RNA sequence: UCAAGAGUUCAAGGCCAUAGCAGAAGCACUUACAGUGCAGCCAUGUCAGAUUCCAAUGAAUCUGCGAAUUCUGCU
Numbered sequence: 001u002c003a004a005g006a007g008u009u010c011a012a013g014g015c016c017a018u019a020g021c022a023g024a025a026g027c028a029c030u031u032a033c034a035g036u037g038c039a040g041c042c043a044u045g046u047c048a049g050a051u052u053c054c055a056a057u058g059a060a061u062c063u064g065c066g067a068a069u070u071c072u073g074c075u
Base pairs, nucleotide, nucleotide: 013042014041015040019075020074021073022072023071024070025069026038027037028036047064048063049062050061051060052059053058
Notes
This 75-nucleotide RNA from Crocodylus porosus belongs to the Rfam family "Mammalian CPEB3 ribozyme". Pairs were carried over by alignment from the consensus structure, which is taken from published work. From the family's description: The mammalian CPEB3 ribozyme is a self cleaving RNA located in the second intron of the CPEB3 gene which belongs to a family of genes regulating messenger RNA polyadenylation. This ribozyme is highly conserved and found only in mammals. The CPEB3 ribozyme is structurally and biochemically related to the human hepatitis delta virus (HDV) ribozyme and the HDV ribozyme is proposed to have arisen from the human transcriptome. There is currently only one other known self cleaving ribozyme in mammals, the CoTC motif. A search with the family's covariance model found it, with a score of 58 bits.